[Rfam]
RNA: XIST RNA A repeat
RNA sequence: UUGCCCAACGGGGCAACGGAUACAUGCCUUAAAUUUA
Numbered sequence: 001u002u003g004c005c006c007a008a009c010g011g012g013g014c015a016a017c018g019g020a021u022a023c024a025u026g027c028c029u030u031a032a033a034u035u036u037a
Stems, first nucleotide, its partner, number of pairs: 003014004017026002